[Rfam]
RNA sequence: GUAUUGAAAGUGUUGAAUAGAAUGUUUACUUAAGAAUAUCUAUAAACAUUAAAGGAAGACUGAAAACAUAC
Numbered sequence: 001g002u003a004u005u006g007a008a009a010g011u012g013u014u015g016a017a018u019a020g021a022a023u024g025u026u027u028a029c030u031u032a033a034g035a036a037u038a039u040c041u042a043u044a045a046a047c048a049u050u051a052a053a054g055g056a057a058g059a060c061u062g063a064a065a066a067c068a069u070a071c
Stems, first nucleotide, its partner, number of pairs: 001071004005066001009061003021050006033041002
Rfam assigns this 71-nucleotide RNA from Myotis myotis to the family "GAIT element". Rfam describes the family as follows. This family represents a cis-acting element in the 3'-UTR of the ceruloplasmin (Cp) gene called gamma interferon inhibitor of translation (GAIT). The source organism's lineage runs through Eukaryota, Boreoeutheria, Chiroptera, Yangochiroptera and Myotis. The family's RNA type in Rfam is cis-regulatory element.